[Rfam]
RNA sequence: AAAUACCUUCGGGGCAGGGUGAAAUUCCCGACCGGCGGUGAUGACCCCCCGAUGGGGUCUCAGCCCGCGACUCCCUUUGCACAAGUUUGUUUUUUCGUUGUGCGUGCAGAGGGACUGACUUGGUGCAACUCCAAGGCCGACGGUACAGUCCGGAUGGAAGAAGGGUAAA
Number, nucleotide and partner (000 for none) at each position: 001a000002a000003a000004u000005a000006c164007c163008u162009u161010c160011g000012g000013g000014g000015c000016a000017g029018g028019g027020u000021g000022a000023a000024a000025u000026u000027c019028c018029c017030g000031a149032c148033c139034g138035g068036c067037g066038g065039u000040g000041a000042u000043g000044a000045c000046c000047c000048c000049c000050c000051g000052a000053u000054g000055g000056g000057g000058u000059c000060u000061c000062a000063g137064c136065c038066c037067g036068c035069g000070a000071c000072u114073c113074c112075c111076u110077u109078u108079g107080c106081a105082c104083a000084a000085g000086u000087u000088u000089g000090u000091u000092u000093u000094u000095u000096c000097g000098u000099u000100g000101u000102g000103c000104g082105u081106g080107c079108a078109g077110a076111g075112g074113g073114a072115c000116u000117g000118a000119c135120u134121u133122g132123g131124u000125g000126c000127a000128a000129c000130u000131c123132c122133a121134a120135g119136g064137c063138c034139g033140a000141c152142g151143g150144u000145a000146c000147a000148g032149u031150c143151c142152g141153g000154a000155u000156g000157g000158a000159a000160g010161a009162a008163g007164g006165g000166u000167a000168a000169a000

This 169-nucleotide RNA sequence from Tumebacillus flagellatus belongs to the Rfam family "FMN riboswitch aptamer (RFN element)". Gene Ontology term of the family: FMN binding. The source organism's lineage runs through Bacteria, Bacillati, Bacillota, Bacilli and Tumebacillus. The match comes from Rfam's covariance-model search (106 bits).